[Rfam]
RNA sequence: CUAUCGCAUCAAGAGUCGCGGCGACGCCCGACGCCAACCUGCUGAUCCGAGCAAGGUGGAGCCCUCAUCGACUGGAGGGGAUGUGGCCGAACCGGCAACGAAACGGGUUUCG
Dot-bracket structure: .....(((((....((((.(......).)))).((..((((((.[[[[[))).))).))....................))))).((((...)))).......]]]]]....
Numbered sequence: 001c002u003a004u005c006g007c008a009u010c011a012a013g014a015g016u017c018g019c020g021g022c023g024a025c026g027c028c029c030g031a032c033g034c035c036a037a038c039c040u041g042c043u044g045a046u047c048c049g050a051g052c053a054a055g056g057u058g059g060a061g062c063c064c065u066c067a068u069c070g071a072c073u074g075g076a077g078g079g080g081a082u083g084u085g086g087c088c089g090a091a092c093c094g095g096c097a098a099c100g101a102a103a104c105g106g107g108u109u110u111c112g
Stems, first nucleotide, its partner, number of pairs: 006084005015032004020027001034059002038056003041052003045108005086096004
The record is a 112-nucleotide RNA sequence from Methylobacterium sp. Leaf93, which matches "SAM-I/IV (S-adenosyl methionine) riboswitch aptamer" in Rfam.
On this family, see Weinberg et al., RNA 2008: "The aptamer core of SAM-IV riboswitches mimics the ligand-binding site of SAM-I riboswitches".
The base pairs follow the family's consensus structure, which is taken from published work.
Clan: SAM clan.